[Rfam]
RNA sequence: CGGGAUAACUCGGGAGAAGGAACUCGGCAAAAUAGCCCCGUAACUUCGGGAGAAGGGGUGCUCCACAAGGUGAUGGGACUUGCUCCCAGAGCUGAGCGGAGUUGCAAUAAAUUGGCUCAGGCGACUGUUUAGCAAAAACACAGGGCUCUGCAAAACCGUAAAGGUGACGUAUAGGGCCUGACGCCUGCCCGGUGCCGGAAGGUUAAGAGGAGGGGUCAGCCGCAAGGCGAAGCUCUGAAUUGAAGCCCCGGUAAACGGCGGCCGUAACUAUAACGGUCCUAAGGUAGCGAAAUUCCUUGUCGGGUAAGUUCCGACCUGCACGAAUGGCGUAACGAUCUGAGCGCUGUCACCUCCCGAGACCCG
Numbered sequence: 001c002g003g004g005a006u007a008a009c010u011c012g013g014g015a016g017a018a019g020g021a022a023c024u025c026g027g028c029a030a031a032a033u034a035g036c037c038c039c040g041u042a043a044c045u046u047c048g049g050g051a052g053a054a055g056g057g058g059u060g061c062u063c064c065a066c067a068a069g070g071u072g073a074u075g076g077g078a079c080u081u082g083c084u085c086c087c088a089g090a091g092c093u094g095a096g097c098g099g100a101g102u103u104g105c106a107a108u109a110a111a112u113u114g115g116c117u118c119a120g121g122c123g124a125c126u127g128u129u130u131a132g133c134a135a136a137a138a139c140a141c142a143g144g145g146c147u148c149u150g151c152a153a154a155a156c157c158g159u160a161a162a163g164g165u166g167a168c169g170u171a172u173a174g175g176g177c178c179u180g181a182c183g184c185c186u187g188c189c190c191g192g193u194g195c196c197g198g199a200a201g202g203u204u205a206a207g208a209g210g211a212g213g214g215g216u217c218a219g220c221c222g223c224a225a226g227g228c229g230a231a232g233c234u235c236u237g238a239a240u241u242g243a244a245g246c247c248c249c250g251g252u253a254a255a256c257g258g259c260g261g262c263c264g265u266a267a268c269u270a271u272a273a274c275g276g277u278c279c280u281a282a283g284g285u286a287g288c289g290a291a292a293u294u295c296c297u298u299g300u301c302g303g304g305u306a307a308g309u310u311c312c313g314a315c316c317u318g319c320a321c322g323a324a325u326g327g328c329g330u331a332a333c334g335a336u337c338u339g340a341g342c343g344c345u346g347u348c349a350c351c352u353c354c355c356g357a358g359a360c361c362c363g
Base pairs, nucleotide, nucleotide: 001363002362003361004360009358010357011356012355013354014353015352016351019348020347035059036058037057038056039055044049060102061101062100063099064098074088075087076086077085078084103107115342116341117340118339119338120337121336122334123333126140127139128138143179144178145177146176147175148174149173150172151169155165156164157163182329183328184327185326187259188258189257192256193255194252195251196250197249198248201247202246203245207241208240212236213235214234215233216232219228220227260278261277262276263275264274265273279283289316299315300314301313302312303311304310